RNA sequence: CUGAUCUGGCCGCAUGGGUCGACGUUCGUGCAACGAGCCCGUUCCGCGAUGUUACCUUUGAGUAACAAACGGAUGCGCCAAUGUCAG
Numbered sequence: 001c002u003g004a005u006c007u008g009g010c011c012g013c014a015u016g017g018g019u020c021g022a023c024g025u026u027c028g029u030g031c032a033a034c035g036a037g038c039c040c041g042u043u044c045c046g047c048g049a050u051g052u053u054a055c056c057u058u059u060g061a062g063u064a065a066c067a068a069a070c071g072g073a074u075g076c077g078c079c080a081a082u083g084u085c086a087g
Stems, first nucleotide, its partner, number of pairs: 001087005009079001011077003015041004023035004043073004051066005
A member of the RNA family "L4-Archaeoglobi ribosomal protein leades", 87 nucleotides long. Rfam classes the family as a cis-regulatory leader. Pairs were carried over by alignment from the consensus structure, which is taken from published work. A reference for the family is Eckert and Weinberg (2020), "Discovery of 20 novel ribosomal leader candidates in bacteria and archaea", BMC Microbiol.